[Rfam]
RNA sequence: UCGACUGUACUCGAACAGGAUCACUUAUGUAGUGAUUUCCUUUCGUUCACAAGAGUACUCUUGACAAAACCCUAAACCGUGAUGAGGAGUUGUAUACCCCGCCCUAAUGGAGGUUCAGUCAUGUACUCGACUUCGAUGACCCAUCCUUUACAAGGACAGGCUGUGGGUAUUGCUGAGCGGUU
Numbered sequence: 001u002c003g004a005c006u007g008u009a010c011u012c013g014a015a016c017a018g019g020a021u022c023a024c025u026u027a028u029g030u031a032g033u034g035a036u037u038u039c040c041u042u043u044c045g046u047u048c049a050c051a052a053g054a055g056u057a058c059u060c061u062u063g064a065c066a067a068a069a070c071c072c073u074a075a076a077c078c079g080u081g082a083u084g085a086g087g088a089g090u091u092g093u094a095u096a097c098c099c100c101g102c103c104c105u106a107a108u109g110g111a112g113g114u115u116c117a118g119u120c121a122u123g124u125a126c127u128c129g130a131c132u133u134c135g136a137u138g139a140c141c142c143a144u145c146c147u148u149u150a151c152a153a154g155g156a157c158a159g160g161c162u163g164u165g166g167g168u169a170u171u172g173c174u175g176a177g178c179g180g181u182u
Base pairs, nucleotide, nucleotide: 003039006035008034009033010032011031017028019026020025043067045065046064047063049061051059076181077180078179079178080177095169096168097167098166099165100163101162103160104159105158108143109142110141118131119130120129144156145155146154147153
RNA: ACEA small nucleolar RNA U3
Organism: Perkinsus olseni